[Rfam]
RNA: Manganese Mn2+ riboswitch aptamer (yybP-ykoY)
RNA sequence: CCUGAGGGAGUAGCCGCUCUGCAUUACUGACAGAGGCUUGCGUCAACACACUUGGUUCGCCGGGCAAUCCGGCAGCACCAUGGCGCAAACAGCCGCAAGGCCUGGCAAGACUCAUGAUUUUCCGGUGCGUAGCGGGGGCUGCGGCAGCGGAGAAUCAUGUUGUCCGCGCAGCCCCCCGGAUC
Numbered sequence: 001c002c003u004g005a006g007g008g009a010g011u012a013g014c015c016g017c018u019c020u021g022c023a024u025u026a027c028u029g030a031c032a033g034a035g036g037c038u039u040g041c042g043u044c045a046a047c048a049c050a051c052u053u054g055g056u057u058c059g060c061c062g063g064g065c066a067a068u069c070c071g072g073c074a075g076c077a078c079c080a081u082g083g084c085g086c087a088a089a090c091a092g093c094c095g096c097a098a099g100g101c102c103u104g105g106c107a108a109g110a111c112u113c114a115u116g117a118u119u120u121u122c123c124g125g126u127g128c129g130u131a132g133c134g135g136g137g138g139c140u141g142c143g144g145c146a147g148c149g150g151a152g153a154a155u156c157a158u159g160u161u162g163u164c165c166g167c168g169c170a171g172c173c174c175c176c177c178g179g180a181u182c
Stems, first nucleotide, its partner, number of pairs: 018034003036090001038088008053080004091181001093179003